[Rfam]
About this RNA: The record is a 137-nucleotide RNA sequence from Paractinoplanes abujensis, which matches "c-di-AMP riboswitch aptamer (ydaO/yuaA leader)" in Rfam.

RNA sequence: AGGAGACCGCCGCCUAAUCGCCCUGCCGGGCGAACCGGGGAACCAAUCUUUCCGGGGUGAAUCCGCUAACCAGCGGUAGGGAUUACUUCCGUCCCGAACCCGUCAGCUAACUCGGUCGGCGGCCGACGGAAGGAACA
Numbered sequence: 001a002g003g004a005g006a007c008c009g010c011c012g013c014c015u016a017a018u019c020g021c022c023c024u025g026c027c028g029g030g031c032g033a034a035c036c037g038g039g040g041a042a043c044c045a046a047u048c049u050u051u052c053c054g055g056g057g058u059g060a061a062u063c064c065g066c067u068a069a070c071c072a073g074c075g076g077u078a079g080g081g082a083u084u085a086c087u088u089c090c091g092u093c094c095c096g097a098a099c100c101c102g103u104c105a106g107c108u109a110a111c112u113c114g115g116u117c118g119g120c121g122g123c124c125g126a127c128g129g130a131a132g133g134a135a136c137a
Stems, first nucleotide, its partner, number of pairs: 011121004018033005034116006044054001055101003063076004079095004
About this RNA:
NCBI's taxonomy places the organism under Bacteria, Actinomycetota, Actinomycetes, Micromonosporaceae, Paractinoplanes. A search with the family's covariance model found it, with a score of 90 bits.